This 177-nucleotide RNA from Pseudomonas knackmussii belongs to the Rfam family "Manganese Mn2+ riboswitch aptamer (yybP-ykoY)". The family has 29 seed sequences and 1,126 matches in Rfam 15.1. The literature on the family includes a 2015 paper in Mol Cell by Price et al., "Mn(2+)-sensing mechanisms of yybP-ykoY orphan riboswitches". NCBI's taxonomy places the organism under Bacteria, Pseudomonadota, Gammaproteobacteria, Pseudomonadaceae, Pseudomonas knackmussii.
[Rfam]
RNA sequence: CCCGGCGUCAUUGGGGAGUAGCCGCCCGCCCGGUCCGUCCGGCGGGGAUCACGCCAACAUCCUUGGCCCGCAGGCCAUGGUGUGAUCAGCGCAGCGCCUGGCAAGACCUUUGACCAUGCAACCUCCGCAACGGCCGGGGAGGCGCAUGGUCAUGGGUAUCACACCGGCCGGGAGUUC
Numbered sequence: 001c002c003c004g005g006c007g008u009c010a011u012u013g014g015g016g017a018g019u020a021g022c023c024g025c026c027c028g029c030c031c032g033g034u035c036c037g038u039c040c041g042g043c044g045g046g047g048a049u050c051a052c053g054c055c056a057a058c059a060u061c062c063u064u065g066g067c068c069c070g071c072a073g074g075c076c077a078u079g080g081u082g083u084g085a086u087c088a089g090c091g092c093a094g095c096g097c098c099u100g101g102c103a104a105g106a107c108c109u110u111u112g113a114c115c116a117u118g119c120a121a122c123c124u125c126c127g128c129a130a131c132g133g134c135c136g137g138g139g140a141g142g143c144g145c146a147u148g149g150u151c152a153u154g155g156g157u158a159u160c161a162c163a164c165c166g167g168c169c170g171g172g173a174g175u176u177c
Base pairs, nucleotide, nucleotide: 026045027044028043029042030041047087048086049085050084051083052082053081054080055079056078064077065076066075067074068073088176089175090174092172